Shown here is a 51-nucleotide RNA, a member of the family "eL15-Euryarchaeota ribosomal protein leader".
RNA sequence: CGGGAUAAUGUCCCGUAGGAGUGUGGCUGAAAACUUCAGCUGAACCGUGAA
Dot-bracket structure: (((((.....)))))..((.....(((((.......)))))...)).....
Numbered sequence: 001c002g003g004g005a006u007a008a009u010g011u012c013c014c015g016u017a018g019g020a021g022u023g024u025g026g027c028u029g030a031a032a033a034c035u036u037c038a039g040c041u042g043a044a045c046c047g048u049g050a051a
Stems, first nucleotide, its partner, number of pairs: 001015005018046002025041005
On this family, see Eckert and Weinberg, BMC Microbiol 2020: "Discovery of 20 novel ribosomal leader candidates in bacteria and archaea". It is one of the family's seed sequences.